[Rfam]
RNA: FMN riboswitch aptamer (RFN element)
Organism: Lachnobacterium bovis
RNA sequence: UAAAGUCUUCAGGGCAGGGUUAAUUUCCCGACCGGCGGUAAAGUCCGCGAGCUCGUUAGAGUUGAUUUGGUGCAAUUCCAAAACCGACAGUAAAGUCUGGAUGGAAGAAGAUAAGC
Numbered sequence: 001u002a003a004a005g006u007c008u009u010c011a012g013g014g015c016a017g018g019g020u021u022a023a024u025u026u027c028c029c030g031a032c033c034g035g036c037g038g039u040a041a042a043g044u045c046c047g048c049g050a051g052c053u054c055g056u057u058a059g060a061g062u063u064g065a066u067u068u069g070g071u072g073c074a075a076u077u078c079c080a081a082a083a084c085c086g087a088c089a090g091u092a093a094a095g096u097c098u099g100g101a102u103g104g105a106a107g108a109a110g111a112u113a114a115g116c
Stems, first nucleotide, its partner, number of pairs: 005112006017029003031096002033086002035048004043084002051062003066082005088099003